[Rfam]
RNA sequence: CACCGCUAGGUGAAAAUAAGCCGCAAAUGGCGCCGGCAAGUAGCACGAUCGAAACCCGGCGAGGCUAACAAAGAG
Numbered sequence: 001c002a003c004c005g006c007u008a009g010g011u012g013a014a015a016a017u018a019a020g021c022c023g024c025a026a027a028u029g030g031c032g033c034c035g036g037c038a039a040g041u042a043g044c045a046c047g048a049u050c051g052a053a054a055c056c057c058g059g060c061g062a063g064g065c066u067a068a069c070a071a072a073g074a075g
Stems, first nucleotide, its partner, number of pairs: 001012004019066004031061006043050001
The family of this 75-nucleotide RNA is "RT-18 RNA". The family's consensus secondary structure is taken from published work.